This 312-nucleotide RNA from Meira miltonrushii belongs to the Rfam family "Group I catalytic intron". Gene Ontology term of the family: Group I intron splicing. The source organism's lineage runs through Eukaryota, Basidiomycota, Ustilaginomycotina, Exobasidiomycetes and Meira. It scores 84 bits against the family's covariance model.
[Rfam]
RNA sequence: CUGCCCUUUUUAAAUGUACAAGGGGCUGAAAGUAUGAUCAAAGUUCAUGCUAGUCAAUAAAUAUUGGCAACACCAUCAAAUUGCGGGGAAGUUCUUAGAGCUUAAGCUACCGCUGCAAGAUUGAAAAAUCUUGUCAGCACCGGGGUAAUGACCUAGGGUAUGGUAAAAACGCUUAAGAUUGGAUUAUCCGCAGCCAAGCUCUACCAGUGUGCCUUCAAGCAUACUCACGAGUGCAGUUCACAGACUAGAUGUUGGUGGGCAGUGUUUCUCACACUGCUUAAGAUAUAGUCGAGCCGUUGGCGUAAGCUUUAC
Number, nucleotide and partner (000 for none) at each position: 001c000002u028003g027004c000005c025006c024007u023008u022009u021010u000011u000012a000013a000014a000015u000016g000017u000018a000019c000020a000021a009022g008023g007024g006025g005026c000027u003028g002029a000030a000031a000032g000033u000034a000035u000036g000037a000038u000039c000040a000041a000042a000043g000044u000045u000046c000047a000048u000049g000050c000051u000052a000053g000054u000055c000056a000057a000058u000059a000060a000061a000062u000063a000064u000065u000066g000067g000068c000069a000070a000071c257072a256073c255074c254075a253076u000077c251078a250079a000080a000081u000082u192083g191084c190085g189086g188087g187088g000089a000090a000091g000092u000093u183094c182095u181096u000097a179098g000099a000100g000101c000102u000103u000104a000105a000106g000107c000108u000109a000110c000111c000112g000113c000114u000115g000116c000117a000118a000119g000120a000121u000122u000123g000124a000125a000126a000127a000128a000129u000130c000131u000132u000133g000134u000135c000136a000137g000138c000139a000140c000141c000142g000143g000144g000145g000146u000147a000148a000149u000150g000151a000152c000153c000154u000155a000156g000157g000158g000159u000160a000161u000162g000163g000164u000165a000166a000167a000168a000169a000170c000171g000172c000173u000174u000175a000176a000177g000178a000179u097180u000181g095182g094183a093184u000185u000186a000187u087188c086189c085190g084191c083192a082193g237194c236195c000196a000197a000198g232199c231200u230201c229202u000203a000204c000205c000206a225207g224208u223209g222210u221211g000212c000213c000214u000215u000216c000217a000218a000219g000220c000221a210222u209223a208224c207225u206226c000227a000228c000229g201230a200231g199232u198233g000234c000235a000236g194237u193238u000239c000240a000241c291242a000243g290244a289245c288246u287247a286248g000249a000250u078251g077252u000253u075254g074255g073256u072257g071258g000259g277260c276261a275262g274263u273264g272265u271266u000267u000268c000269u000270c000271a265272c264273a263274c262275u261276g260277c259278u000279u000280a000281a000282g000283a000284u000285a000286u247287a246288g245289u244290c243291g241292a000293g000294c000295c000296g000297u000298u000299g308300g307301c306302g000303u000304a000305a000306g301307c300308u299309u000310u000311a000312c000